Rfam assigns this 81-nucleotide sequence to the family "Fluoride riboswitch aptamer (crcB RNA motif)".
Nucleotides: 081
Stems, first nucleotide, its partner, number of pairs: 010025004016072006044062002047059005
Number, partner (000 for none) and nucleotide at each position: 001000a002000a003000a004000a005000u006000g007000a008000c009000u010025g011024g012023c013022u014000a015000u016072g017071g018070c019069a020068u021067u022013a023012g024011c025010c026000u027000u028000g029000g030000c031000g032000u033000g034000a035000g036000c037000c038000a039000g040000a041000a042000c043000c044062g045061c046000c047059c048058u049057u050056u051055u052000u053000c054000u055051a056050a057049a058048g059047g060000a061045g062044c063000u064000g065000a066000u067021a068020a069019u070018g071017c072016c073000u074000a075000c076000c077000a078000a079000c080000a081000a